[Rfam]
RNA sequence: GGAAAAACAAACCUCGGAUUUCCGUGUCCAAUGUUUGAUUGUUCAUCUUAUAUGAAAUUUUUUUAUAAUUACUAUUUUUAUUGUUGUUAGAUGAUAAAACAUGUCCGUGACUUGUUUUUUUAAUUUUUUUUCAUAAUUUUUUUAAAUAUAAGACGGAUGGUCAAAUGUUGGACAUGGAAAUUAAG
Numbered sequence: 001g002g003a004a005a006a007a008c009a010a011a012c013c014u015c016g017g018a019u020u021u022c023c024g025u026g027u028c029c030a031a032u033g034u035u036u037g038a039u040u041g042u043u044c045a046u047c048u049u050a051u052a053u054g055a056a057a058u059u060u061u062u063u064u065a066u067a068a069u070u071a072c073u074a075u076u077u078u079u080a081u082u083g084u085u086g087u088u089a090g091a092u093g094a095u096a097a098a099a100c101a102u103g104u105c106c107g108u109g110a111c112u113u114g115u116u117u118u119u120u121u122a123a124u125u126u127u128u129u130u131u132c133a134u135a136a137u138u139u140u141u142u143u144a145a146a147u148a149u150a151a152g153a154c155g156g157a158u159g160g161u162c163a164a165a166u167g168u169u170g171g172a173c174a175u176g177g178a179a180a181u182u183a184a185g
Base pairs, nucleotide, nucleotide: 027172028171029170030169031168032167034165035164036163037162038161039160040159041158042157043156044155046153047152048151049150050149051148